[Rfam]
RNA sequence: GGUCUGCUGUGGCUCUCGUCGAAGGCAAUCUAUCCCAGAGACCUUAAUUUCUUCGAAGGGAUCUGUCCCUGUCCGGCCCCGUGGGGCCGGGCACAUGGAGCCCACCUGGUUAACCAGGUCCGAGGGGAUAAAACCGUCCUUCACGGCUCUCGCGGCGCCGCC
Number, nucleotide and partner (000 for none) at each position: 001g000002g000003u000004c000005u157006g156007c155008u154009g153010u152011g151012g149013c000014u000015c146016u000017c145018g144019u143020c000021g000022a000023a000024g000025g000026c000027a000028a000029u000030c000031u000032a000033u128034c127035c126036c124037a000038g000039a000040g120041a119042c118043c117044u000045u000046a000047a000048u000049u000050u000051c000052u000053u000054c000055g000056a000057a000058g103059g102060g101061a000062u099063c098064u097065g096066u095067c000068c000069c000070u000071g092072u091073c090074c089075g088076g087077c086078c085079c084080c000081g000082u000083g000084g079085g078086g077087c076088c075089g074090g073091g072092c071093a000094c000095a066096u065097g064098g063099a062100g000101c060102c059103c058104a000105c000106c000107u000108g000109g000110u000111u000112a000113a000114c000115c000116a000117g043118g042119u041120c040121c000122g000123a000124g036125g000126g035127g034128a033129u000130a000131a000132a000133a000134c000135c000136g000137u000138c000139c000140u000141u000142c000143a019144c018145g017146g015147c000148u000149c012150u000151c011152g010153c009154g008155g007156c006157g005158c000159c000160g000161c000162c000